This 302-nucleotide sequence from Rhynchospora breviuscula belongs to the Rfam family "Plant signal recognition particle RNA".
The base pairs follow the family's consensus structure, which is taken from published work.

[Rfam]
RNA sequence: GCCGAGCUCAGUAACGAGGGCUUGUAACCCGAGUGGGGGCAGGGUGACACGGACGGUCGGAUCGCAACCUGAGGUCGGGUCUGGUUCGGCUACUAGUCGGCCCGCCCGUUCCAAGUUGGGCAGCUGACCCAAGCGACUCCGGCGAAAGUCAGGGUUGAUUGGGUCCUAAAGCGGAGGGGAACGCGUGAGGCUGGCCCCACAGAGCAGCGAACACCUCCCGCUCUCAACGGUGGAAGGAUAACGGGCCCGUGCGGUCCAGAUCCAAUACGGCCUCAGAAGCCUCCGAUCGGACGGUCACCUUU
Dot-bracket structure: (((((((((........))))))....(((....))))))((((((((.((..((.(((((..((...((((((((((((((((..(.(.((....(.((((((.((.(((((.((((((.(((.(((((((.((((((.(((....))).)))))).)))))))(....).(((((......(((....(((......)))....)))....))))).)))))))))..)))))))....)))))).)))).).)))))))).....))))))))..)).))))).))..)))))))))).
It scores 225 bits against the family's covariance model. Clan: SRP clan. The literature on the family includes a 2002 paper in Curr Opin Struct Biol by Wild et al., "Towards the structure of the mammalian signal recognition particle".